[Rfam]
RNA sequence: AGGUCAUGAAGCCGAUCACCUCCUCCCGAUUGGCUCCAGCGACCACCGGCACUCCUCCUCCCAGCCGUUGGUCAAUAUCAAGAAGCUCGGUGCACCUCCUCCCGCACCGGGCUUUUUUU
Dot-bracket structure: ......((..((((((............))))))..))..(((((.((((.............)))).))))).........(((((((((((..........))))))))))).....
RNA: Alphaproteobacterial ar14